[Rfam]
RNA sequence: CUGCAUUGAUGAGUGAUUGUGUCUGACCUGGUAUAGCUGUUCCUCAGGGAUUGCUCUGACCAGGGUCUGAGGACAGUAAUCUUCUCUCUGAGCAG
Numbered sequence: 001c002u003g004c005a006u007u008g009a010u011g012a013g014u015g016a017u018u019g020u021g022u023c024u025g026a027c028c029u030g031g032u033a034u035a036g037c038u039g040u041u042c043c044u045c046a047g048g049g050a051u052u053g054c055u056c057u058g059a060c061c062a063g064g065g066u067c068u069g070a071g072g073a074c075a076g077u078a079a080u081c082u083u084c085u086c087u088c089u090g091a092g093c094a095g
Stems, first nucleotide, its partner, number of pairs: 003093002036054002039051001

Z30 small nucleolar RNA: a 95-nucleotide sequence from Danionella cerebrum. The family's consensus secondary structure was predicted with PFOLD. Rfam classes the family as a C/D-box small nucleolar RNA. A reference for the family is Galardi et al. (2002), "Purified box C/D snoRNPs are able to reproduce site-specific 2'-O-methylation of target RNA in vitro", Mol Cell Biol. NCBI's taxonomy places the organism under Eukaryota, Opisthokonta, Actinopteri, Danionidae, Danionella. It scores 73 bits against the family's covariance model.